[Rfam]
The family of this 158-nucleotide RNA sequence from Streptomyces uncialis is "Streptomyces sRNA scr5239". Pairs were carried over by alignment from the consensus structure, which is taken from published work. Rfam links the family to the GO terms negative regulation of translation and mRNA binding. It scores 150 bits against the family's covariance model.
RNA sequence: GCUCCGUUCUCCCCGCACAGGAGGACGGUCAGGGGAACCGGCGCUCUCUGCCCUGACUGCACCGGAUCCUCGUCAACGGCCGACCGGGACCGCACACCCGCCGGCCGGGAUUGCUCCGGGCUGCGGUGCCGGGAGGGUUGAGGGUCCCUCCCAGGCAC
Numbered sequence: 001g002c003u004c005c006g007u008u009c010u011c012c013c014c015g016c017a018c019a020g021g022a023g024g025a026c027g028g029u030c031a032g033g034g035g036a037a038c039c040g041g042c043g044c045u046c047u048c049u050g051c052c053c054u055g056a057c058u059g060c061a062c063c064g065g066a067u068c069c070u071c072g073u074c075a076a077c078g079g080c081c082g083a084c085c086g087g088g089a090c091c092g093c094a095c096a097c098c099c100g101c102c103g104g105c106c107g108g109g110a111u112u113g114c115u116c117c118g119g120g121c122u123g124c125g126g127u128g129c130c131g132g133g134a135g136g137g138u139u140g141a142g143g144g145u146c147c148c149u150c151c152c153a154g155g156c157a158c
Base pairs, nucleotide, nucleotide: 004028005027006026008024009023010022011021012020032071033070034069035068036067038065039064040063041062043060044059045056046055077107078106079105080104081103082102086099087098088097112128113127114126115125117123118122131152132151133150134149135148136147137146
About this RNA:
It is annotated as a small RNA. The source organism's lineage runs through Bacteria, Bacillati, Actinomycetota, Actinomycetes and Streptomyces.